[Rfam]
BsrG: a 244-nucleotide RNA sequence from Cohnella fermenti. Gene Ontology terms of the family: toxin activity and autolysis. Rfam describes the family as follows. bsrE, bsrG and bsrH pair through intermolecular interactions with antisense sRNAs. They form type I toxin/antitoxin system that includes an mRNA encoding for a short, toxic peptide (bsrE, bsrG and bsrH) and an antitoxin that is comprised of an antisense RNA. bsrG encodes a 39-amino-acid toxin, and the 180 nucleotide antisense sRNA called SR4 acts as the antitoxin (they overlap by 123 nucleotides). SR4 interaction with the 3'UTR of bsrG RNA promotes bsrG degradation and inhibits its translation. BsrG interferes with cell envelope biosynthesis, causes membrane invaginations and delocalisation of the cell wall synthesis and initiates autolysis. bsrE RNA encodes 30 amino-acid toxin peptide. Its antitoxin gene, SR5 overlaps by 112 nucleotides at the 3' end of bsrE. SR5 also overlaps bsrG from nucleotide 163 to 52 (Rfam overlap check). The antitoxin SR5 promotes bsrE degradation but unlike SR4 it does not directly inhibits toxin mRNA translation. By type it is a small RNA. The match comes from Rfam's covariance-model search (77 bits).
RNA sequence: CAUAGAACGGCUUGAAAGGGCGGUCGGCUACCUCUCGCGAAGGGAGGGAUGCCCGUGACAGUGUACGAAGCCUUAAUGAUCAUGCUGACUUUCGGUUUGCUGAUCGUUGCGCUGUUGUCCACAACACGAAAAUAGACCGCCCCAUCGCAGGGAACGCGGUCUAUUUCCAUACCCGUUGUACCUGAAGCCGACCGCCUUUGAAGCGGCUACUGUGCAGGGAGGAGUCGUGUUACCAGCACGGCUC
Dot-bracket structure: (((((.(((((((....(((..(((.....((.(((.......)))))........(((((((......((............))........(((.........))).)))))))..................)))..))).............(.(.............).)..........)))))).((((.......)))).).))))).......((((((((((...))))))))))